The record is a 123-nucleotide RNA from Pseudorhizobium banfieldiae, which matches "Alphaproteobacterial ar14" in Rfam.

RNA sequence: GGCUGUCGCGAGCACACCCCUCCUCCUCCCAAAUGCUCGUGACGACGAUUGGCGGCAUCCCCCUCCUCCCAAGUCGCCAGUCAAUAUCGAGCCCGGUGCAUCCUCCCGCACCGGGCUUUUUCG
Dot-bracket structure: ......((((((((...................)))))))).....((((((((((................))))))))))......(((((((((((........))))))))))).....
Numbered sequence: 001g002g003c004u005g006u007c008g009c010g011a012g013c014a015c016a017c018c019c020c021u022c023c024u025c026c027u028c029c030c031a032a033a034u035g036c037u038c039g040u041g042a043c044g045a046c047g048a049u050u051g052g053c054g055g056c057a058u059c060c061c062c063c064u065c066c067u068c069c070c071a072a073g074u075c076g077c078c079a080g081u082c083a084a085u086a087u088c089g090a091g092c093c094c095g096g097u098g099c100a101u102c103c104u105c106c107c108g109c110a111c112c113g114g115g116c117u118u119u120u121u122c123g
Stems, first nucleotide, its partner, number of pairs: 007041008047082010089118011
About the family: Smr14C2 was renamed NfeR1 (Nodule Formation Efficiency RNA) highly expressed in salt stress and during the symbiotic interaction on legume roots. The family has 118 seed sequences and 784 matches in Rfam 15.1. Rfam links the family to the GO term biological process involved in symbiotic interaction. The literature on the family includes a 2012 paper in RNA Biol by del Val et al., "A survey of sRNA families in alpha-proteobacteria".